[Rfam]
RNA sequence: GGGGAUGUAGCUCAGUGGGAGAGCACUUGCUUUGCAUUCAAGAGGCCCUGGGAUCAACCCCCAGCAUCUCCA
Numbered sequence: 001g002g003g004g005a006u007g008u009a010g011c012u013c014a015g016u017g018g019g020a021g022a023g024c025a026c027u028u029g030c031u032u033u034g035c036a037u038u039c040a041a042g043a044g045g046c047c048c049u050g051g052g053a054u055c056a057a058c059c060c061c062c063a064g065c066a067u068c069u070c071c072a
Stems, first nucleotide, its partner, number of pairs: 001071007010024004026042004048064005

The record is a 72-nucleotide sequence from Molothrus ater, which matches "tRNA" in Rfam. Its family is annotated with triplet codon-amino acid adaptor activity in the Gene Ontology. It scores 61 bits against the family's covariance model. It is annotated as a transfer RNA.